[Rfam]
RNA sequence: UGAUGCCAGGGGCCAAAGGUCUGAAUCCACAUGAGCUUGCUUGUAAGUGGAUGAAAGACCUUGGGACCCGCCCCAAUAUGAGCAUAAAAGUGGGAUAGUAAUCCCGCGAUAUGCGAAUAUUUGGGAGGAUUGUGGGAGUGCGAAGCACGAAACAAUCCGCAGGCAUCA
Numbered sequence: 001u002g003a004u005g006c007c008a009g010g011g012g013c014c015a016a017a018g019g020u021c022u023g024a025a026u027c028c029a030c031a032u033g034a035g036c037u038u039g040c041u042u043g044u045a046a047g048u049g050g051a052u053g054a055a056a057g058a059c060c061u062u063g064g065g066a067c068c069c070g071c072c073c074c075a076a077u078a079u080g081a082g083c084a085u086a087a088a089a090g091u092g093g094g095a096u097a098g099u100a101a102u103c104c105c106g107c108g109a110u111a112u113g114c115g116a117a118u119a120u121u122u123g124g125g126a127g128g129a130u131u132g133u134g135g136g137a138g139u140g141c142g143a144a145g146c147a148c149g150a151a152a153c154a155a156u157c158c159g160c161a162g163g164c165a166u167c168a
Base pairs, nucleotide, nucleotide: 001168002167003166004165005164006163007162010068011067013065016062017061018060019059020058021057022056026051027050028049029048030047031044032043033042034041035040072124073123075121076120077119078118079117082114083113084112085111090107091106092105093104094103095102096101127158128157129156130155131154132153133152138148139147140146141145

A member of the RNA family "Clostridiales-1 RNA" from Dorea sp. AF36-15AT, 168 nucleotides long.